[Rfam]
RNA sequence: CAAAGCAAGAAGAAGCGCCCGCUUCUCACCUGAUGACGCUAUAUGCAGUUUACAGGUAAAAACGUUUCAUUUUUGGAUAAAUGGAAUUAGUGUGGGCGUAUUGCGCCCGCACUUUUUUUGUACU
Numbered sequence: 001c002a003a004a005g006c007a008a009g010a011a012g013a014a015g016c017g018c019c020c021g022c023u024u025c026u027c028a029c030c031u032g033a034u035g036a037c038g039c040u041a042u043a044u045g046c047a048g049u050u051u052a053c054a055g056g057u058a059a060a061a062a063c064g065u066u067u068c069a070u071u072u073u074u075g076g077a078u079a080a081a082u083g084g085a086a087u088u089a090g091u092g093u094g095g096g097c098g099u100a101u102u103g104c105g106c107c108c109g110c111a112c113u114u115u116u117u118u119u120g121u122a123c124u
Stems, first nucleotide, its partner, number of pairs: 011026006028057003035050003038046002091111009